[Rfam]
RNA sequence: ACUCUUGCAAAAGCUCCUAGCACUCCUUAUGUUCAGCACUGCAGGAGGGGCUUGCCCCUUGGCUAUGGUGAUAAACGGAACGUGGAAUAAUCGUUGUGGACCCGGGGGCAGUACCCGGCGUCUCCACCAGUUACAAUCCGGCCUUUCAGGCUCGGACGGAUGGGGACGAAACAGGCUCGACACGCGUGGUAAAGACCUUCCUUUUGCCCGGCAUUGUACCGCCGUUAUCGGGCUAAACAUACAAGUGCCAAUGAUAACACUGAGGUGCUCGCUGUCGCUGCAUAAGCGAUAAGCGCGGUUCGGGAGGGCACCGGGCAACAGAAGUCCUCCCACU
Numbered sequence: 001a002c003u004c005u006u007g008c009a010a011a012a013g014c015u016c017c018u019a020g021c022a023c024u025c026c027u028u029a030u031g032u033u034c035a036g037c038a039c040u041g042c043a044g045g046a047g048g049g050g051c052u053u054g055c056c057c058c059u060u061g062g063c064u065a066u067g068g069u070g071a072u073a074a075a076c077g078g079a080a081c082g083u084g085g086a087a088u089a090a091u092c093g094u095u096g097u098g099g100a101c102c103c104g105g106g107g108g109c110a111g112u113a114c115c116c117g118g119c120g121u122c123u124c125c126a127c128c129a130g131u132u133a134c135a136a137u138c139c140g141g142c143c144u145u146u147c148a149g150g151c152u153c154g155g156a157c158g159g160a161u162g163g164g165g166a167c168g169a170a171a172c173a174g175g176c177u178c179g180a181c182a183c184g185c186g187u188g189g190u191a192a193a194g195a196c197c198u199u200c201c202u203u204u205u206g207c208c209c210g211g212c213a214u215u216g217u218a219c220c221g222c223c224g225u226u227a228u229c230g231g232g233c234u235a236a237a238c239a240u241a242c243a244a245g246u247g248c249c250a251a252u253g254a255u256a257a258c259a260c261u262g263a264g265g266u267g268c269u270c271g272c273u274g275u276c277g278c279u280g281c282a283u284a285a286g287c288g289a290u291a292a293g294c295g296c297g298g299u300u301c302g303g304g305a306g307g308g309c310a311c312c313g314g315g316c317a318a319c320a321g322a323a324g325u326c327c328u329c330c331c332a333c334u
Stems, first nucleotide, its partner, number of pairs: 041063002067208005077201004082196002092186003096183003102118005119168007209224004214235001216233001219231002296313004303330006
RNA: Alphaproteobacteria transfer-messenger RNA
Organism: Acetobacter orleanensis